[Rfam]
The record is a 178-nucleotide RNA sequence from Calothrix sp. PCC 7507, which matches "Antisense RNA which regulates isiA expression" in Rfam. The base pairs follow the family's consensus structure, which was predicted with PFOLD. A search with the family's covariance model found it, with a score of 127 bits.
RNA sequence: AGUAACCGAAUAUUGUCGUGGGGUUUAAAUUCGGGUGACUAAUUAGGUGUACAUUUCCUAGUGUGGUGUCAUAAAUUCCGCCCACAAACAUCGCUUUUAUUACUAGCAAAAAUGCGCCUAAACCCAGAAUAAUCAAGUGAUGACCUAAGAUUAAACCUAACUGCUUAGGAUCAUUCCA
Number, nucleotide and partner (000 for none) at each position: 001a000002g000003u000004a000005a000006c000007c000008g000009a000010a000011u000012a000013u000014u000015g000016u000017c000018g000019u000020g000021g000022g000023g000024u000025u000026u000027a000028a000029a000030u000031u000032c000033g000034g000035g000036u000037g000038a000039c000040u000041a000042a000043u000044u000045a000046g000047g000048u000049g000050u000051a000052c000053a000054u000055u000056u000057c000058c000059u000060a000061g000062u000063g000064u000065g000066g000067u000068g000069u000070c000071a000072u000073a000074a000075a000076u000077u000078c000079c000080g000081c000082c000083c000084a000085c000086a000087a000088a000089c000090a000091u000092c000093g000094c000095u000096u000097u000098u000099a000100u000101u000102a000103c000104u000105a000106g000107c000108a000109a000110a000111a000112a000113u000114g000115c000116g000117c000118c000119u000120a000121a000122a000123c000124c000125c000126a000127g000128a000129a000130u000131a000132a000133u000134c000135a000136a175137g174138u173139g172140a171141u170142g000143a000144c169145c168146u167147a166148a165149g000150a000151u000152u000153a000154a000155a000156c000157c000158u000159a000160a000161c000162u000163g000164c000165u148166u147167a146168g145169g144170a141171u140172c139173a138174u137175u136176c000177c000178a000